[Rfam]
RNA sequence: UGACCACUUUUGCCGAUCAAAGGCAGAAGUCAAGGCUGCGGUGAAGCCGGGUCAAAUGCCGA
Numbered sequence: 001u002g003a004c005c006a007c008u009u010u011u012g013c014c015g016a017u018c019a020a021a022g023g024c025a026g027a028a029g030u031c032a033a034g035g036c037u038g039c040g041g042u043g044a045a046g047c048c049g050g051g052u053c054a055a056a057u058g059c060c061g062a
Stems, first nucleotide, its partner, number of pairs: 001054005006030009
The family of this 62-nucleotide RNA is "Streptococcus sRNA SpF59 (ldcC RNA)".
A reference for the family is Mann et al. (2012), "Control of virulence by small RNAs in Streptococcus pneumoniae", PLoS Pathog.
Rfam's curators put it in the seed alignment.